RNA sequence: AUUGAAUAUCGGUAGGUGAGGUUAACUCAAGGGAUACGGAUUGCUGCCGCGGGAAGAUGGAGACAUUUUUUCGUUUUGGUAUGAGCAGUCUAGGUCGAUUCAAGGCUUAGAAUAAUGCAAUUUCAUUGCCCUGAGAAGCUAAAACUCGUACGAUACUGUAAUAGUA
Numbered sequence: 001a002u003u004g005a006a007u008a009u010c011g012g013u014a015g016g017u018g019a020g021g022u023u024a025a026c027u028c029a030a031g032g033g034a035u036a037c038g039g040a041u042u043g044c045u046g047c048c049g050c051g052g053g054a055a056g057a058u059g060g061a062g063a064c065a066u067u068u069u070u071u072c073g074u075u076u077u078g079g080u081a082u083g084a085g086c087a088g089u090c091u092a093g094g095u096c097g098a099u100u101c102a103a104g105g106c107u108u109a110g111a112a113u114a115a116u117g118c119a120a121u122u123u124c125a126u127u128g129c130c131c132u133g134a135g136a137a138g139c140u141a142a143a144a145c146u147c148g149u150a151c152g153a154u155a156c157u158g159u160a161a162u163a164g165u166a
Base pairs, nucleotide, nucleotide: 005162007160008159009158011151013103015146016145017144020140021139022138026135027134028133029132031131032130033129040121041120042119043118044117046080047079048078049077056067057066058065059064089111090110091109094106095105096104
RNA: M-box riboswitch aptamer (ykoK leader)